[Rfam]
RNA sequence: CUUCACCGAGCCAAGCCACAGCGGGUUCUCGGCGUCCCGGCCCUGGCCAUAGGUGGCGAGCAGCGCCUGGGCCUC
Dot-bracket structure: .............(.((.....)).)......(....((...((..(((....)))..))...))...)......

ASpks TB sRNA: a 75-nucleotide RNA sequence from Streptomyces sp. PT12.
For this family Rfam cites "Identification of small RNAs in Mycobacterium tuberculosis" (Arnvig and Young, Mol Microbiol, 2009).
Pairs were carried over by alignment from the consensus structure, which is taken from published work.
Rfam classes the family as an antisense RNA.